[Rfam]
RNA sequence: CCAACGUGGAUACUCUCGGGAGGUCUCUCCCCGGGCUCUGUCCAGGUGGCAUAGGGGAGCAUAGGGCUCUGCCCCAUGAUGUACAGUCCCUUUCCACAACGUUGGAGAUGAAGCUGGGCUUUAUGUCUGCACCUGCAUAUUCCUACGACUUCUCAGAGUCUGUGGACUAUGACUGAGGAGACAAACCAUGCAGGAAACAAAA
Numbered sequence: 001c002c003a004a005c006g007u008g009g010a011u012a013c014u015c016u017c018g019g020g021a022g023g024u025c026u027c028u029c030c031c032c033g034g035g036c037u038c039u040g041u042c043c044a045g046g047u048g049g050c051a052u053a054g055g056g057g058a059g060c061a062u063a064g065g066g067c068u069c070u071g072c073c074c075c076a077u078g079a080u081g082u083a084c085a086g087u088c089c090c091u092u093u094c095c096a097c098a099a100c101g102u103u104g105g106a107g108a109u110g111a112a113g114c115u116g117g118g119c120u121u122u123a124u125g126u127c128u129g130c131a132c133c134u135g136c137a138u139a140u141u142c143c144u145a146c147g148a149c150u151u152c153u154c155a156g157a158g159u160c161u162g163u164g165g166a167c168u169a170u171g172a173c174u175g176a177g178g179a180g181a182c183a184a185a186c187c188a189u190g191c192a193g194g195a196a197a198c199a200a201a202a
Stems, first nucleotide, its partner, number of pairs: 001105007008043005015035003019030004046097004055090004059084001061082003064077001132194007149180006158167003
Rfam assigns this 202-nucleotide RNA sequence from Ictidomys tridecemlineatus to the family "Small nucleolar RNA SNORA73 family". It is one of the family's seed sequences. NCBI's taxonomy places the organism under Eukaryota, Metazoa, Sarcopterygii, Tetrapoda, Ictidomys. Pairs were carried over by alignment from the consensus structure, which is taken from published work. Its Rfam clan is "snR30-U17 clan". By type it is an H/ACA-box small nucleolar RNA. On this family, see Cervelli et al., J Mol Evol 2002: "Comparative Structure Analysis of Vertebrate U17 Small Nucleolar RNA (snoRNA)". From the family's description: U17 (SNORA73A and SNORA73B) also known as E1 belongs to the H/ACA class of small nucleolar RNAs (snoRNAs). Vertebrate U17 is intron-encoded and ranges in length from 200-230 nucleotides, longer than most snoRNAs.